The family of this 34-nucleotide RNA sequence is "S4-Bacteroidia ribosomal protein leader". Pairs were carried over by alignment from the consensus structure, which is taken from published work. The literature on the family includes a 2020 paper in BMC Microbiol by Eckert and Weinberg, "Discovery of 20 novel ribosomal leader candidates in bacteria and archaea". It is annotated as a cis-regulatory leader.
RNA sequence: GAUUGCAUUUUUCUCCUCUCUGCAAUCGCGGCUG
Number, nucleotide and partner (000 for none) at each position: 001g027002a026003u025004u024005g023006c022007a021008u000009u000010u000011u000012u000013c000014u000015c000016c000017u000018c000019u000020c000021u007022g006023c005024a004025a003026u002027c001028g000029c000030g000031g000032c000033u000034g000